Small nucleolar RNA SNORA15: a 134-nucleotide RNA from Salvelinus namaycush. The match comes from Rfam's covariance-model search (75 bits). The family's RNA type in Rfam is H/ACA-box small nucleolar RNA. The family's consensus secondary structure was predicted with RNAfold. A reference for the family is Huttenhofer et al. (2001), "RNomics: an experimental approach that identifies 201 candidates for novel, small, non-messenger RNAs in mouse", EMBO J. ACA15 is a member of the H/ACA class of snoRNA that guide the sites of modification of uridines to pseudouridines.

[Rfam]
RNA sequence: GCAUGGAUGAAUUCUGUGUCACUCUGUCAGUAGUGGAUGCAGUCAGACACCAUGCAAAAGCAUCCUUUCACUUCUUUACUAAGAGUGGGUGCUGUCCUGUGCCUCACCUACUCAAUAGAGGAGUGAAUACAAGU
Numbered sequence: 001g002c003a004u005g006g007a008u009g010a011a012u013u014c015u016g017u018g019u020c021a022c023u024c025u026g027u028c029a030g031u032a033g034u035g036g037a038u039g040c041a042g043u044c045a046g047a048c049a050c051c052a053u054g055c056a057a058a059a060g061c062a063u064c065c066u067u068u069c070a071c072u073u074c075u076u077u078a079c080u081a082a083g084a085g086u087g088g089g090u091g092c093u094g095u096c097c098u099g100u101g102c103c104u105c106a107c108c109u110a111c112u113c114a115a116u117a118g119a120g121g122a123g124u125g126a127a128u129a130c131a132a133g134u
Stems, first nucleotide, its partner, number of pairs: 001055006014042006066127003069123001071121005083113009